[Rfam]
RNA sequence: UAGCCUGAAAUGAUGUUAUGAACUCAUGUCUCUUCUCUGAGGUGUAUUGUGGAGACAGCUAGAUGCAUUUCUGAUCAGGCUU
Numbered sequence: 001u002a003g004c005c006u007g008a009a010a011u012g013a014u015g016u017u018a019u020g021a022a023c024u025c026a027u028g029u030c031u032c033u034u035c036u037c038u039g040a041g042g043u044g045u046a047u048u049g050u051g052g053a054g055a056c057a058g059c060u061a062g063a064u065g066c067a068u069u070u071c072u073g074a075u076c077a078g079g080c081u082u
Stems, first nucleotide, its partner, number of pairs: 002081004
The record is an 82-nucleotide RNA from Thalassarche chlororhynchos, which matches "Small nucleolar RNA SNORD111" in Rfam. The family has 5 seed sequences and 894 matches in Rfam 15.1. A reference for the family is Galardi et al. (2002), "Purified box C/D snoRNPs are able to reproduce site-specific 2'-O-methylation of target RNA in vitro", Mol Cell Biol. A search with the family's covariance model found it, with a score of 50 bits. The base pairs follow the family's consensus structure, which was predicted with RNAalifold.